[Rfam]
RNA sequence: GACAAGGGGUGCAUCGCGACGACCCCGUGAGGCGUCAGCCCAACGUUCGCGUCCAAGCUUCUCUAUCAGGAGGUGGACGCCAUG
Numbered sequence: 001g002a003c004a005a006g007g008g009g010u011g012c013a014u015c016g017c018g019a020c021g022a023c024c025c026c027g028u029g030a031g032g033c034g035u036c037a038g039c040c041c042a043a044c045g046u047u048c049g050c051g052u053c054c055a056a057g058c059u060u061c062u063c064u065a066u067c068a069g070g071a072g073g074u075g076g077a078c079g080c081c082a083u084g
Base pairs, nucleotide, nucleotide: 006026007025008024009023010022049080050079051078052077053076054075